Source information: This 76-nucleotide sequence from Callipepla squamata belongs to the Rfam family "Small nucleolar RNA SNORD83". It is annotated as a C/D-box small nucleolar RNA. For this family Rfam cites "Characterisation of the U83 and U84 small nucleolar RNAs: two novel 2'-O-ribose methylation guide RNAs that lack complementarities to ribosomal RNAs" (Jady and Kiss, Nucleic Acids Res, 2000). Rfam links the family to the GO terms RNA processing and nucleolus. It scores 66 bits against the family's covariance model.
RNA sequence: GCCAAAUGAUGUCAGCUGUUUGGCAUUAGCACGCUGUGCAAAGAUGACCUUCAUCUAUCACCCCAUGCUGAUGGCU
Numbered sequence: 001g002c003c004a005a006a007u008g009a010u011g012u013c014a015g016c017u018g019u020u021u022g023g024c025a026u027u028a029g030c031a032c033g034c035u036g037u038g039c040a041a042a043g044a045u046g047a048c049c050u051u052c053a054u055c056u057a058u059c060a061c062c063c064c065a066u067g068c069u070g071a072u073g074g075c076u
Stems, first nucleotide, its partner, number of pairs: 001075004029039004